[Rfam]
Rfam assigns this 364-nucleotide sequence from Cnuibacter physcomitrellae to the family "Bacterial RNase P class A". The family's consensus secondary structure is taken from published work. A search with the family's covariance model found it, with a score of 278 bits. Taxonomically the source falls in Cnuibacter (Bacteria, Actinomycetes, Micrococcales, Microbacteriaceae). It is annotated as a ribozyme.

RNA sequence: AUGGGUCGGCGGACGGUCGCGUCGCGGGGCGAGAGCCCCGCGCCGAGGAACGUCCGGGCUCCACAGAGCAGGGCGGUGGGUAACACCCACCCGGGGUGACCCGCGAGACAGUGCCACAGAGAACAGACCGCCGGAGGGGAACCUCCGGUAAGGGUGAAACGGUGGAGUAAGAGACCACCAGCGACCGGGGUGACCCGGCCGGCUAGGCAAACCUCGUCCGGAGCAAGGUCAGACAGGAAGCGUCGAGGUGGCUCGCCGAGCUUCCGGGUAGACCGCUGGAGGGCCGUGGCAACACGUCCCCGAGAGAGAUGGCCGUCACGGAGGAGACUCCGUACAGAACCCGGCGUACAGCCGGCCCAUUCAC
Numbered sequence: 001a002u003g004g005g006u007c008g009g010c011g012g013a014c015g016g017u018c019g020c021g022u023c024g025c026g027g028g029g030c031g032a033g034a035g036c037c038c039c040g041c042g043c044c045g046a047g048g049a050a051c052g053u054c055c056g057g058g059c060u061c062c063a064c065a066g067a068g069c070a071g072g073g074c075g076g077u078g079g080g081u082a083a084c085a086c087c088c089a090c091c092c093g094g095g096g097u098g099a100c101c102c103g104c105g106a107g108a109c110a111g112u113g114c115c116a117c118a119g120a121g122a123a124c125a126g127a128c129c130g131c132c133g134g135a136g137g138g139g140a141a142c143c144u145c146c147g148g149u150a151a152g153g154g155u156g157a158a159a160c161g162g163u164g165g166a167g168u169a170a171g172a173g174a175c176c177a178c179c180a181g182c183g184a185c186c187g188g189g190g191u192g193a194c195c196c197g198g199c200c201g202g203c204u205a206g207g208c209a210a211a212c213c214u215c216g217u218c219c220g221g222a223g224c225a226a227g228g229u230c231a232g233a234c235a236g237g238a239a240g241c242g243u244c245g246a247g248g249u250g251g252c253u254c255g256c257c258g259a260g261c262u263u264c265c266g267g268g269u270a271g272a273c274c275g276c277u278g279g280a281g282g283g284c285c286g287u288g289g290c291a292a293c294a295c296g297u298c299c300c301c302g303a304g305a306g307a308g309a310u311g312g313c314c315g316u317c318a319c320g321g322a323g324g325a326g327a328c329u330c331c332g333u334a335c336a337g338a339a340c341c342c343g344g345c346g347u348a349c350a351g352c353c354g355g356c357c358c359a360u361u362c363a364c
Base pairs, nucleotide, nucleotide: 001360002359003358004357005356006355007354008353009352010351011349012317013316014315015314016313017312018311020045021044023042024041025040026039027038028037050347051346052345054344055343056342057341058340059223060222061221062220066254067253068252069251071219072218073217074216075215076090077089078088079087080086091105092103093102094101095100106214107213111212112211113208114207115206128153129152130149131148132147133146134145135144136143137142161179162178163177164176165175181203182201183200185198186197187196188195189194227274228273229272230271236265237264238263239262240261241260247257248256249255281300282299283298285296286295287294288293